[Rfam]
RNA sequence: ACUCUCUCAGCUCUGCAUGGUCAUGCCUGUCACUACACGCGUGGCUUUCGUAACGGGGAGAGAGAGAAAGGAUCUCCUCGGGACCUCAGAGUGGCCUCUCACGGUGGCCACUCCUUCCUCGAGGGGCGCCACAGGC
Number, nucleotide and partner (000 for none) at each position: 001a000002c066003u065004c064005u063006c062007u061008c060009a000010g000011c058012u057013c056014u055015g054016c000017a000018u000019g046020g045021u044022c043023a042024u041025g040026c039027c000028u000029g000030u000031c000032a000033c000034u000035a000036c000037a000038c000039g026040c025041g024042u023043g022044g021045c020046u019047u000048u000049c000050g000051u000052a000053a000054c015055g014056g013057g012058g011059a000060g008061a007062g006063a005064g004065a003066g002067a000068a000069a000070g000071g000072a000073u000074c126075u125076c124077c123078u122079c000080g120081g119082g118083a000084c000085c000086u000087c000088a000089g113090a112091g000092u110093g109094g108095c107096c106097u000098c000099u000100c000101a000102c000103g000104g000105u000106g096107g095108c094109c093110a092111c000112u090113c089114c000115u000116u000117c000118c082119u081120c080121g000122a078123g077124g076125g075126g074127c000128g000129c000130c000131a000132c000133a000134g000135g000136c000
RNA: Small nucleolar RNA SNORA64/SNORA10 family